RNA sequence: UCGCCGCUCAUUGGGGAGUAGCCGCCCUGCUGCGUCGUCAGCGGGGGUGUCUGUCAACAAGCUUGGCCCGUGCGGCCAUGGCAGACACAGCCUCUGGCCUGGCGAGACCGAUGAUCCAAAGCGCGCUGCAAUAGGGCCCGGUGCGCGAUGGAUCGUCGCUCGCUCACAUCCGGCCCGAGGA
Numbered sequence: 001u002c003g004c005c006g007c008u009c010a011u012u013g014g015g016g017a018g019u020a021g022c023c024g025c026c027c028u029g030c031u032g033c034g035u036c037g038u039c040a041g042c043g044g045g046g047g048u049g050u051c052u053g054u055c056a057a058c059a060a061g062c063u064u065g066g067c068c069c070g071u072g073c074g075g076c077c078a079u080g081g082c083a084g085a086c087a088c089a090g091c092c093u094c095u096g097g098c099c100u101g102g103c104g105a106g107a108c109c110g111a112u113g114a115u116c117c118a119a120a121g122c123g124c125g126c127u128g129c130a131a132u133a134g135g136g137c138c139c140g141g142u143g144c145g146c147g148a149u150g151g152a153u154c155g156u157c158g159c160u161c162g163c164u165c166a167c168a169u170c171c172g173g174c175c176c177g178a179g180g181a
Stems, first nucleotide, its partner, number of pairs: 025045003047088010064078005093181003

The record is a 181-nucleotide RNA sequence from Paraburkholderia humisilvae, which matches "Manganese Mn2+ riboswitch aptamer (yybP-ykoY)" in Rfam. Lineage of the source: Bacteria > Pseudomonadati > Betaproteobacteria > Burkholderiales > Paraburkholderia. A search with the family's covariance model found it, with a score of 61 bits. Its family is annotated with manganese ion binding in the Gene Ontology. About the family: This RNA was originally discovered in E. coli during a large scale screen and was named SraF. The family was later found to exist upstream of related families of protein genes in many bacteria, including the the yybP and ykoK genes in B. subtilis. The specific functions of these proteins are unknown, but this structured RNA element may be involved in their genetic regulation as a riboswitch. On this family, see Argaman et al., Curr Biol 2001: "Novel small RNA-encoding genes in the intergenic regions of Escherichia coli".